[Rfam]
RNA sequence: AUCUUUAAAGAGCGCCGAGCUUCCGGGCCUAAACCCAUGGCAUGGUUCUGAAGCCGUAGCAGAAAGAUGUGCGCGCUGCUACCAGGGUGCUGACAGAAAUGUCAGUGCCUCCCGUAUUUGGAAAGGUGUUUGAUGCUACGUUUG
Numbered sequence: 001a002u003c004u005u006u007a008a009a010g011a012g013c014g015c016c017g018a019g020c021u022u023c024c025g026g027g028c029c030u031a032a033a034c035c036c037a038u039g040g041c042a043u044g045g046u047u048c049u050g051a052a053g054c055c056g057u058a059g060c061a062g063a064a065a066g067a068u069g070u071g072c073g074c075g076c077u078g079c080u081a082c083c084a085g086g087g088u089g090c091u092g093a094c095a096g097a098a099a100u101g102u103c104a105g106u107g108c109c110u111c112c113c114g115u116a117u118u119u120g121g122a123a124a125g126g127u128g129u130u131u132g133a134u135g136c137u138a139c140g141u142u143u144g
Stems, first nucleotide, its partner, number of pairs: 006135001011130006019054005025048005034040002056082007085110011111121002